[Rfam]
RNA: c-di-GMP-I-GGC riboswitch aptamer
Organism: Candidatus Methylomirabilis lanthanidiphila
RNA sequence: UCCGAUAAACGCAAACCAGUCGCGAGGCUGGGACGCAAAGCCACCGGUCAGCAAACGGGCUGACAGCGGGGUUACCGAAG
Numbered sequence: 001u002c003c004g005a006u007a008a009a010c011g012c013a014a015a016c017c018a019g020u021c022g023c024g025a026g027g028c029u030g031g032g033a034c035g036c037a038a039a040g041c042c043a044c045c046g047g048u049c050a051g052c053a054a055a056c057g058g059g060c061u062g063a064c065a066g067c068g069g070g071g072u073u074a075c076c077g078a079a080g
Base pairs, nucleotide, nucleotide: 001080003077004076011036012035016031017030018029019028020027021026034066039073040072041071042070044069045068046067047064048063049062050061051060